[Rfam]
RNA sequence: GCGAGGAUGACGAAGAAAAUCAAUCGGAUUCCCAUUGAUUUCUACGCGAAAGAUGAGAUCUUAAACCAGCUACUUCUGACCCGC
Numbered sequence: 001g002c003g004a005g006g007a008u009g010a011c012g013a014a015g016a017a018a019a020u021c022a023a024u025c026g027g028a029u030u031c032c033c034a035u036u037g038a039u040u041u042c043u044a045c046g047c048g049a050a051a052g053a054u055g056a057g058a059u060c061u062u063a064a065a066c067c068a069g070c071u072a073c074u075u076c077u078g079a080c081c082c083g084c
Stems, first nucleotide, its partner, number of pairs: 001084003005080001
The family of this 84-nucleotide RNA from Sorghum bicolor is "Small nucleolar RNA R12". On this family, see Chen et al., Nucleic Acids Res 2003: "The high diversity of snoRNAs in plants: identification and comparative study of 120 snoRNA genes from Oryza sativa". A search with the family's covariance model found it, with a score of 89 bits. Rfam describes the family as follows. snoR12 is a C/D box small nucleolar RNA, which acts as a methylation guide for 25S ribosomal RNA in plants. snoR12 has been alternatively named snoZ44 in Arabidopsis and snoZ131 in rice.